This 36-nucleotide RNA from Erinaceus europaeus belongs to the Rfam family "Iron response element I". It scores 35 bits against the family's covariance model. Gene Ontology term of the family: response to iron ion. Rfam 15.1 lists 6,829 matches to the family in 599 species. It is annotated as a cis-regulatory element. A reference for the family is Zhang et al. (2001), "Repression of Manduca sexta ferritin synthesis by IRP1/IRE interaction", Insect Mol Biol.
RNA sequence: CAAAUCUCCUACUUCAACAGUGUUUGGAUGGAACAG
Numbered sequence: 001c002a003a004a005u006c007u008c009c010u011a012c013u014u015c016a017a018c019a020g021u022g023u024u025u026g027g028a029u030g031g032a033a034c035a036g
Base pairs, nucleotide, nucleotide: 001036005033007032008031009030011029013028014027015026016025017024018022